mir-51 microRNA precursor family: a 61-nucleotide sequence from Caenorhabditis brenneri. The organism belongs to Caenorhabditis, within Eukaryota. The family's consensus secondary structure was predicted with RNAalifold. Its family is annotated with miRNA-mediated post-transcriptional gene silencing and RISC complex in the Gene Ontology. It is one of the family's seed sequences.
[Rfam]
RNA sequence: UACCCGUAGCUCCUAUCCAUGUUGUUAUCAAAGAAGUCAACAUGGAAGUUGGUACUGGUGC
Numbered sequence: 001u002a003c004c005c006g007u008a009g010c011u012c013c014u015a016u017c018c019a020u021g022u023u024g025u026u027a028u029c030a031a032a033g034a035a036g037u038c039a040a041c042a043u044g045g046a047a048g049u050u051g052g053u054a055c056u057g058g059u060g061c
Stems, first nucleotide, its partner, number of pairs: 001060004006055003010051001013048002016046008024037003